[Rfam]
RNA sequence: AAACGUGCUCCGGGGUCGGUGUAACUCCGAACCGGCGGUGAUAGUCCGCGACCCGGAGGCUCGCAAGAGCCGAAGGUGGAGCCGGUGGAACUCCGGCACCGACGGUUAAAGUCCGGAUGAGAGGCAGCACGGGU
Numbered sequence: 001a002a003a004c005g006u007g008c009u010c011c012g013g014g015g016u017c018g019g020u021g022u023a024a025c026u027c028c029g030a031a032c033c034g035g036c037g038g039u040g041a042u043a044g045u046c047c048g049c050g051a052c053c054c055g056g057a058g059g060c061u062c063g064c065a066a067g068a069g070c071c072g073a074a075g076g077u078g079g080a081g082c083c084g085g086u087g088g089a090a091c092u093c094c095g096g097c098a099c100c101g102a103c104g105g106u107u108a109a110a111g112u113c114c115g116g117a118u119g120a121g122a123g124g125c126a127g128c129a130c131g132g133g134u
Base pairs, nucleotide, nucleotide: 004131005130006129007128008127009126010123017029018028019027031112032111033101034100035049036048037047038046044099045098053076054075081097082096083095084094085093103115104114105113

The family of this 134-nucleotide sequence from Propioniciclava tarda is "FMN riboswitch aptamer (RFN element)". Pairs were carried over by alignment from the consensus structure, which is taken from published work. From the family's description: The RFN element is a highly conserved domain that is found frequently in the 5'-untranslated regions of prokaryotic mRNAs that encode for flavin mononucleotide (FMN) biosynthesis and transport proteins. The match comes from Rfam's covariance-model search (92 bits).